[Rfam]
Rfam assigns this 129-nucleotide RNA sequence from Otolemur garnettii to the family "Small nucleolar RNA SNORA25". The base pairs follow the family's consensus structure, which was predicted with RNAfold. Rfam's curators write: ACA25 is a member of the H/ACA class of snoRNA that guide the sites of modification of uridines to pseudouridines. Taxonomically the source falls in Otolemur (Eukaryota, Craniata, Euteleostomi, Boreoeutheria). A search with the family's covariance model found it, with a score of 90 bits.
RNA sequence: AAGUCAUUUCAUAGAGAGCUUGUGGGGCUAUGAAACCAAGAGCUCUUAAAGCUGCGACUAAAGACUGAAGUUUCCAUAUGAUGCCAUAGACAUACAAUAGUCCCAUGUUAUCCAGAAGGAGAUAUGAUA
Numbered sequence: 001a002a003g004u005c006a007u008u009u010c011a012u013a014g015a016g017a018g019c020u021u022g023u024g025g026g027g028c029u030a031u032g033a034a035a036c037c038a039a040g041a042g043c044u045c046u047u048a049a050a051g052c053u054g055c056g057a058c059u060a061a062a063g064a065c066u067g068a069a070g071u072u073u074c075c076a077u078a079u080g081a082u083g084c085c086a087u088a089g090a091c092a093u094a095c096a097a098u099a100g101u102c103c104c105a106u107g108u109u110a111u112c113c114a115g116a117a118g119g120a121g122a123u124a125u126g127a128u129a
Stems, first nucleotide, its partner, number of pairs: 002059004007054001014047008023039001026037002071122005080112002086106002089103001092101002
Dot-bracket structure: .((((.(......((((((((.(..((........)).)))))))))......).))))...........(((((....((....((.(..((......)).).))....)).....))))).......